[Rfam]
RNA sequence: UUUCAUGUGGAAAUAUGUCUGCUCCUCAUUCCUUUGGGAGCAGGAAAACAUCCAUAACAUGCUACAUUAAAAAAGUUCUCAGGACUGUCAACCUUACCAUAGAGGUUAAGUAGUAGUAUAUGUCUCCUACAUAA
Numbered sequence: 001u002u003u004c005a006u007g008u009g010g011a012a013a014u015a016u017g018u019c020u021g022c023u024c025c026u027c028a029u030u031c032c033u034u035u036g037g038g039a040g041c042a043g044g045a046a047a048a049c050a051u052c053c054a055u056a057a058c059a060u061g062c063u064a065c066a067u068u069a070a071a072a073a074a075g076u077u078c079u080c081a082g083g084a085c086u087g088u089c090a091a092c093c094u095u096a097c098c099a100u101a102g103a104g105g106u107u108a109a110g111u112a113g114u115a116g117u118a119u120a121u122g123u124c125u126c127c128u129a130c131a132u133a134a
Stems, first nucleotide, its partner, number of pairs: 004061005018044008074125002084114002088110001090107006
Small nucleolar RNA U109: a 134-nucleotide sequence from Myotis lucifugus.
A reference for the family is Gu et al. (2005), "A novel experimental approach for systematic identification of box H/ACA snoRNAs from eukaryotes", Nucleic Acids Res.
It scores 117 bits against the family's covariance model.
It is annotated as an H/ACA-box small nucleolar RNA.
Rfam 15.1 lists 1,405 matches to the family in 622 species.
The base pairs follow the family's consensus structure, which was predicted with WAR.